[Rfam]
RNA: Selenocysteine insertion sequence 1
RNA sequence: GACACAUUAGUGAAGACCUCGCAGUAAACCGCUUGUGGGAUGCGAGGUUUGAUGGAAGUCUGUGUU
Numbered sequence: 001g002a003c004a005c006a007u008u009a010g011u012g013a014a015g016a017c018c019u020c021g022c023a024g025u026a027a028a029c030c031g032c033u034u035g036u037g038g039g040a041u042g043c044g045a046g047g048u049u050u051g052a053u054g055g056a057a058g059u060c061u062g063u064g065u066u
Stems, first nucleotide, its partner, number of pairs: 001066005015049009029038003